Selenocysteine insertion sequence 1: a 64-nucleotide RNA sequence from Homo sapiens. The match comes from Rfam's covariance-model search (35 bits). Rfam classes the family as a cis-regulatory element. The incorporation of selenocysteine into a protein sequence is directed by an in-frame UGA codon (usually a stop codon) within the coding region of the mRNA. Selenoprotein mRNAs contain a conserved secondary structure in the 3' UTR that is required for the distinction of UGA stop from UGA selenocysteine. The family has 61 seed sequences and 3,793 matches in Rfam 15.1. Lineage of the source: Eukaryota > Teleostomi > Tetrapoda > Simiiformes > Homo.
RNA sequence: UUUGCUUUAAUGAGAAUAGAAACGUAAACUAUGACCUAGGGGUUUCUGUUGGAUAAUUAGCAGU
Number, nucleotide and partner (000 for none) at each position: 001u000002u063003u062004g061005c060006u000007u000008u000009a000010a000011u000012g000013a000014g000015a050016a049017u048018a047019g046020a045021a044022a043023c042024g000025u000026a000027a000028a000029c039030u038031a037032u000033g000034a000035c000036c000037u031038a030039g029040g000041g000042g023043u022044u021045u020046c019047u018048g017049u016050u015051g000052g000053a000054u000055a000056a000057u000058u000059a000060g005061c004062a003063g002064u000